[Rfam]
RNA sequence: GUUUAUCGAAUUUUAAAACAAUUCAAACUAUUGAAACAAAUUAUAACCAUUCAAGAAAAGAGGAGUAUAAUAAUGACUAAUCACACAUUUCUAUAUCAACCGACAAAUGUAAAUAUUAUUAUUUUAUUAUACUCCAAAGGGCUGGAACUUUAGUAUCACUUGUACUAAAUGUUUAAGUCCUAUUUCUAAUUGAAUGGGACUUAUCAG
Numbered sequence: 001g002u003u004u005a006u007c008g009a010a011u012u013u014u015a016a017a018a019c020a021a022u023u024c025a026a027a028c029u030a031u032u033g034a035a036a037c038a039a040a041u042u043a044u045a046a047c048c049a050u051u052c053a054a055g056a057a058a059a060g061a062g063g064a065g066u067a068u069a070a071u072a073a074u075g076a077c078u079a080a081u082c083a084c085a086c087a088u089u090u091c092u093a094u095a096u097c098a099a100c101c102g103a104c105a106a107a108u109g110u111a112a113a114u115a116u117u118a119u120u121a122u123u124u125u126a127u128u129a130u131a132c133u134c135c136a137a138a139g140g141g142c143u144g145g146a147a148c149u150u151u152a153g154u155a156u157c158a159c160u161u162g163u164a165c166u167a168a169a170u171g172u173u174u175a176a177g178u179c180c181u182a183u184u185u186c187u188a189a190u191u192g193a194a195u196g197g198g199a200c201u202u203a204u205c206a207g
Stems, first nucleotide, its partner, number of pairs: 026204001048196007057187001060134003068118005074112001077109001138181005147173001148171001150168007
A member of the RNA family "Listeria sRNA rli60" from Staphylococcus lugdunensis, 207 nucleotides long. It is annotated as a small RNA. The literature on the family includes a 2009 paper in Nature by Toledo-Arana et al., "The Listeria transcriptional landscape from saprophytism to virulence". Rfam's curators put it in the seed alignment.